[Rfam]
This 102-nucleotide sequence from Mangrovibacillus cuniculi belongs to the Rfam family "Purine riboswitch aptamer". Rfam links the family to the GO term purine nucleobase biosynthetic process.

RNA sequence: AUUAAAUAGCAAAUAUCGACUCGUAUAAUAUUGGAGAUAUGGUCCAAAAGUUUCUACCAAACUACCGUAAAUGGUUUGACUACGAGAAUUGUUGCUCCACUC
Numbered sequence: 001a002u003u004a005a006a007u008a009g010c011a012a013a014u015a016u017c018g019a020c021u022c023g024u025a026u027a028a029u030a031u032u033g034g035a036g037a038u039a040u041g042g043u044c045c046a047a048a049a050g051u052u053u054c055u056a057c058c059a060a061a062c063u064a065c066c067g068u069a070a071a072u073g074g075u076u077u078g079a080c081u082a083c084g085a086g087a088a089u090u091g092u093u094g095c096u097c098c099a100c101u102c
Stems, first nucleotide, its partner, number of pairs: 020086006029049001031047005058078007
Lineage of the source: Bacteria > Bacillati > Bacillota > Bacilli > Mangrovibacillus.